[Rfam]
RNA: mir-1302 microRNA precursor family
RNA sequence: UUUUUGGCAUAAGUAUAUCCCAUGCAAUCUUUGAGAUAUACUUAUGCUAAAA
Numbered sequence: 001u002u003u004u005u006g007g008c009a010u011a012a013g014u015a016u017a018u019c020c021c022a023u024g025c026a027a028u029c030u031u032u033g034a035g036a037u038a039u040a041c042u043u044a045u046g047c048u049a050a051a052a
Stems, first nucleotide, its partner, number of pairs: 006048007014040003018036002021033001022031001